RNA sequence: UGACCCUUGUAAGCCGAGGGUCAUCUAGCCAACUGACGUUGUUAGUGAACUCCGAUUGUUCGCAUCAUACAUAAGCCAAUUGCCCUUCUUGCAAUUGGCUCUUUUUUU
Dot-bracket structure: ((((((...........))))))...............((((..((((((.......)))))).......)))).((((((((.......))))))))..........
Numbered sequence: 001u002g003a004c005c006c007u008u009g010u011a012a013g014c015c016g017a018g019g020g021u022c023a024u025c026u027a028g029c030c031a032a033c034u035g036a037c038g039u040u041g042u043u044a045g046u047g048a049a050c051u052c053c054g055a056u057u058g059u060u061c062g063c064a065u066c067a068u069a070c071a072u073a074a075g076c077c078a079a080u081u082g083c084c085c086u087u088c089u090u091g092c093a094a095u096u097g098g099c100u101c102u103u104u105u106u107u108u
Stems, first nucleotide, its partner, number of pairs: 001023006039074004045063006076098008
Background: The family of this 108-nucleotide RNA from Vibrio proteolyticus is "Qrr RNA". Pairs were carried over by alignment from the consensus structure, which is taken from published work. This family represents a set of small RNAs (the Qrr RNAs) that are thought to be involved in the regulation of quorum sensing in Vibrio species. It is believed that these RNAs, guided by a protein, Hfq, can mediate the destabilisation of the quorum-sensing master regulators LuxR/HapR mRNAs. A search with the family's covariance model found it, with a score of 100 bits. For this family Rfam cites "A qrr noncoding RNA deploys four different regulatory mechanisms to optimize quorum-sensing dynamics" (Feng et al., Cell, 2015).